[Rfam]
RNA: Small nucleolar RNA SNORD79
RNA sequence: UGCUGUUGGUGAUGAUUUUUGAAAUUAAAAACAGAUGGGAAUCUCUCUGAAAAAGAUGAAGUUCUCUUUAAUAACUGAAACAGUA
Numbered sequence: 001u002g003c004u005g006u007u008g009g010u011g012a013u014g015a016u017u018u019u020u021g022a023a024a025u026u027a028a029a030a031a032c033a034g035a036u037g038g039g040a041a042u043c044u045c046u047c048u049g050a051a052a053a054a055g056a057u058g059a060a061g062u063u064c065u066c067u068u069u070a071a072u073a074a075c076u077g078a079a080a081c082a083g084u085a
Stems, first nucleotide, its partner, number of pairs: 001085007